[Rfam]
The record is a 66-nucleotide sequence from Glycine soja, which matches "MIR4359 microRNA precursor family" in Rfam. Its family is annotated with miRNA-mediated post-transcriptional gene silencing and RISC complex in the Gene Ontology. A search with the family's covariance model found it, with a score of 75 bits.

RNA sequence: AUGUUAACGUAUGAUACGUUAACAUCGGUUUUUUAAAAACCGAUAUUAACGUAUAUGCAUUAACAU
Numbered sequence: 001a002u003g004u005u006a007a008c009g010u011a012u013g014a015u016a017c018g019u020u021a022a023c024a025u026c027g028g029u030u031u032u033u034u035a036a037a038a039a040c041c042g043a044u045a046u047u048a049a050c051g052u053a054u055a056u057g058c059a060u061u062a063a064c065a066u
Stems, first nucleotide, its partner, number of pairs: 001066007009058003014054009024044009
Dot-bracket structure: (((((((.(((..(((((((((.(((((((((...))))))))).))))))))).))).)))))))